[Rfam]
RNA sequence: GGAUGGUGACGAGUAUAUCAUGGUCUCGUUUAUCGUAAUUAGCUAAUUUAUUAGCCUUGCCGACCAUUCUAAUUUAUCACCACCCAUAUUCUGAGUCC
Numbered sequence: 001g002g003a004u005g006g007u008g009a010c011g012a013g014u015a016u017a018u019c020a021u022g023g024u025c026u027c028g029u030u031u032a033u034c035g036u037a038a039u040u041a042g043c044u045a046a047u048u049u050a051u052u053a054g055c056c057u058u059g060c061c062g063a064c065c066a067u068u069c070u071a072a073u074u075u076a077u078c079a080c081c082a083c084c085c086a087u088a089u090u091c092u093g094a095g096u097c098c
Base pairs, nucleotide, nucleotide: 001098002097003096004095045058046057047053
Annotation:
A member of the RNA family "Small nucleolar RNA Z43" from Acer saccharum, 98 nucleotides long. NCBI's taxonomy places the organism under Eukaryota, Magnoliopsida, Sapindales, Acereae, Acer. Pairs were carried over by alignment from the consensus structure, which was predicted with PFOLD. The literature on the family includes a 2003 paper in Nucleic Acids Res by Chen et al., "The high diversity of snoRNAs in plants: identification and comparative study of 120 snoRNA genes from Oryza sativa". It is annotated as a C/D-box small nucleolar RNA.